A member of the RNA family "ylbH leader" from Oceanobacillus profundus, 126 nucleotides long. Rfam classes the family as a cis-regulatory leader.
RNA sequence: AAAAAGAAAAACCUGCAGAAGAUAUUUCUGCAGGUCCCUUUGUUUUUCGUCCUGAAAAACAAAAAGGCAAAGGGAGAGGAGAAACCGGAGCAAGAACUUAUGGGGAAGUGUAAGUCUACUCCGUUU
Dot-bracket structure: ..........(((((((((((...)))))))))))(((((.....(...(......)...)........)))))...........((((...((.(((((..........)))))))..))))...